[Rfam]
Record summary: Shown here is a 64-nucleotide RNA, a member of the family "RAGATH-18 RNA". The family's RNA type in Rfam is small RNA.

RNA sequence: CCUUUGGAGUGUAAAUAGCUUUAGUAGUCUUAGGUAGGCGAGGAAGUACACGUUGAAUAAGGAA
Numbered sequence: 001c002c003u004u005u006g007g008a009g010u011g012u013a014a015a016u017a018g019c020u021u022u023a024g025u026a027g028u029c030u031u032a033g034g035u036a037g038g039c040g041a042g043g044a045a046g047u048a049c050a051c052g053u054u055g056a057a058u059a060a061g062g063a064a
Stems, first nucleotide, its partner, number of pairs: 001062004009051005019046003027039003